[Rfam]
This 65-nucleotide sequence from Mus musculus belongs to the Rfam family "mir-185 microRNA precursor family". Rfam 15.1 lists 130 matches to the family in 129 species. Gene Ontology terms of the family: RISC complex and miRNA-mediated post-transcriptional gene silencing. The source organism's lineage runs through Eukaryota, Eumetazoa, Tetrapoda, Mus and Mus. A reference for the family is Lui et al. (2007), "Patterns of known and novel small RNAs in human cervical cancer", Cancer Res. The base pairs follow the family's consensus structure, which was predicted with RNAalifold.
RNA sequence: AGGGAUUGGAGAGAAAGGCAGUUCCUGAUGGUCCCCUCCCAGGGGCUGGCUUUCCUCUGGUCCUU
Numbered sequence: 001a002g003g004g005a006u007u008g009g010a011g012a013g014a015a016a017g018g019c020a021g022u023u024c025c026u027g028a029u030g031g032u033c034c035c036c037u038c039c040c041a042g043g044g045g046c047u048g049g050c051u052u053u054c055c056u057c058u059g060g061u062c063c064u065u
Base pairs, nucleotide, nucleotide: 001065002064003063004062006060007059008058009057010056011055013054014053015052016051017050019048020047021046022045023044024043025042026041027040030039031038